[Rfam]
Rfam assigns this 131-nucleotide RNA from Camellia sinensis to the family "Small nucleolar RNA snoR104". For this family Rfam cites "Experimental RNomics: identification of 140 candidates for small non-messenger RNAs in the plant Arabidopsis thaliana" (Marker et al., Curr Biol, 2002). It scores 80 bits against the family's covariance model. Pairs were carried over by alignment from the consensus structure, which was predicted with WAR. It is annotated as an H/ACA-box small nucleolar RNA. Rfam links the family to the GO terms RNA processing and nucleolus.
RNA sequence: AUGUAAUACUACUUUCGUAUUUCACAAGCAGAGGUGUUACCUGAUGCAAUCUUCCUACAGAAAAUCUCUCUAAUUUCUUGCUUGUGGUUACUUGAGUUAGUUCUGCAAGUCCCAAAUUACAAGACACAUGA
Numbered sequence: 001a002u003g004u005a006a007u008a009c010u011a012c013u014u015u016c017g018u019a020u021u022u023c024a025c026a027a028g029c030a031g032a033g034g035u036g037u038u039a040c041c042u043g044a045u046g047c048a049a050u051c052u053u054c055c056u057a058c059a060g061a062a063a064a065u066c067u068c069u070c071u072a073a074u075u076u077c078u079u080g081c082u083u084g085u086g087g088u089u090a091c092u093u094g095a096g097u098u099a100g101u102u103c104u105g106c107a108a109g110u111c112c113c114a115a116a117u118u119a120c121a122a123g124a125c126a127c128a129u130g131a
Base pairs, nucleotide, nucleotide: 001042003040005038006037007036008035009034010033067124068123069122080110081109082108083107084106085105086104087103090101091100092099